A member of the RNA family "c-di-GMP-I riboswitch aptamer" from Paenibacillus flagellatus, 93 nucleotides long. GEMM was predicted in a large-scale screen for bacterial structured RNA regulatory elements. The match comes from Rfam's covariance-model search (74 bits). The organism belongs to Paenibacillus, within Bacteria. The base pairs follow the family's consensus structure, which is taken from published work.
RNA sequence: GUACGACAAUAGCAAACCCACUGAAAAGUGGCGACGCAAAGCUUCAGGGGCUAAGGCGGUCAUCUUUUGCCGCUAUGCCAGCCAGCUGCCGAA
Dot-bracket structure: ...........((....(((((....)))))....))..((((...(((((....((((..........))))...)))..))))))......